[Rfam]
Record summary: A member of the RNA family "RAGATH-18 RNA", 67 nucleotides long. It is one of the family's seed sequences. About the family: Actinobacteria, Firmicutes, Fusobacteria, Thermotogae (1 example). By type it is a small RNA. The family's consensus secondary structure is taken from published work.

RNA sequence: CCUUCGGAGUGCCAAACAAGUCGGAGUAGGUAGCAAUAAGCCCAAACGAGGCACGUUGAACAAGGAA
Numbered sequence: 001c002c003u004u005c006g007g008a009g010u011g012c013c014a015a016a017c018a019a020g021u022c023g024g025a026g027u028a029g030g031u032a033g034c035a036a037u038a039a040g041c042c043c044a045a046a047c048g049a050g051g052c053a054c055g056u057u058g059a060a061c062a063a064g065g066a067a
Base pairs, nucleotide, nucleotide: 001065002064003063004062009054010053011052012051013050021049022048023047029042030041031040